[Rfam]
RNA sequence: UUAAAAGCAAAUUUUCACCUUUUAGAUUCAUUGGAUAACUAAUGUAUUUGGCCUUAAUUAUAAACCAGAUACAUUAGUUAUCCAAUGAAUCUAAAAAAUGAAAAUUUGCUUAUAA
Numbered sequence: 001u002u003a004a005a006a007g008c009a010a011a012u013u014u015u016c017a018c019c020u021u022u023u024a025g026a027u028u029c030a031u032u033g034g035a036u037a038a039c040u041a042a043u044g045u046a047u048u049u050g051g052c053c054u055u056a057a058u059u060a061u062a063a064a065c066c067a068g069a070u071a072c073a074u075u076a077g078u079u080a081u082c083c084a085a086u087g088a089a090u091c092u093a094a095a096a097a098a099u100g101a102a103a104a105u106u107u108g109c110u111u112a113u114a115a
Stems, first nucleotide, its partner, number of pairs: 002114002005111003009107005015101003020096006027089018049067003
MIR2593 microRNA precursor family: a 115-nucleotide RNA from Trifolium medium. Gene Ontology terms of the family: RISC complex and miRNA-mediated post-transcriptional gene silencing. A search with the family's covariance model found it, with a score of 98 bits.